S4-Flavobacteria ribosomal protein leader: a 35-nucleotide sequence. Its Rfam clan is "Ribosomal Protein S4 Leader clan".

[Rfam]
RNA sequence: UUUCAUCGAAGGAUGUUGACCUUAAUUCAUGAUAA
Numbered sequence: 001u002u003u004c005a006u007c008g009a010a011g012g013a014u015g016u017u018g019a020c021c022u023u024a025a026u027u028c029a030u031g032a033u034a035a
Stems, first nucleotide, its partner, number of pairs: 001035001003032004008028001009023004